[Rfam]
RNA: c-di-AMP riboswitch aptamer (ydaO/yuaA leader)
RNA sequence: UUGAUUUAUUCGCUGAGUUCUCAUGAUGAUGAGAAACGGGGGAACCAUGAUGGAAGCCUUGGCUUCUUGGGGUGAAUCGGAAGGUUGAAUCCCUUCUGUAGGGUACGCUCUCAAACCCGAAUCCGACAGCUAACCUCGUAAGCGAUUGUUGAGAGAGGUC
Numbered sequence: 001u002u003g004a005u006u007u008a009u010u011c012g013c014u015g016a017g018u019u020c021u022c023a024u025g026a027u028g029a030u031g032a033g034a035a036a037c038g039g040g041g042g043a044a045c046c047a048u049g050a051u052g053g054a055a056g057c058c059u060u061g062g063c064u065u066c067u068u069g070g071g072g073u074g075a076a077u078c079g080g081a082a083g084g085u086u087g088a089a090u091c092c093c094u095u096c097u098g099u100a101g102g103g104u105a106c107g108c109u110c111u112c113a114a115a116c117c118c119g120a121a122u123c124c125g126a127c128a129g130c131u132a133a134c135c136u137c138g139u140a141a142g143c144g145a146u147u148g149u150u151g152a153g154a155g156a157g158g159u160c
Base pairs, nucleotide, nucleotide: 011144012143013142014141018035019034020033021032022031023030024029036139037138038137039136040135041134046069047068070124071123072122078098079097080096081095082094083093101118102117103116104115